Small nucleolar RNA Z105: a 68-nucleotide RNA from Panicum virgatum. The family has 11 seed sequences and 621 matches in Rfam 15.1.

RNA sequence: CUGGCAUAAUGAGGAAAACCUAGAUUUUGCUGAUAUAGUUGAUGAGAAAUACCUCCUACUCAUUCUGA
Numbered sequence: 001c002u003g004g005c006a007u008a009a010u011g012a013g014g015a016a017a018a019c020c021u022a023g024a025u026u027u028u029g030c031u032g033a034u035a036u037a038g039u040u041g042a043u044g045a046g047a048a049a050u051a052c053c054u055c056c057u058a059c060u061c062a063u064u065c066u067g068a
Stems, first nucleotide, its partner, number of pairs: 006063002009060001027047002030041001

Description:
Its family is annotated with RNA processing and nucleolus in the Gene Ontology. A search with the family's covariance model found it, with a score of 61 bits. A reference for the family is Chen et al. (2003), "The high diversity of snoRNAs in plants: identification and comparative study of 120 snoRNA genes from Oryza sativa", Nucleic Acids Res.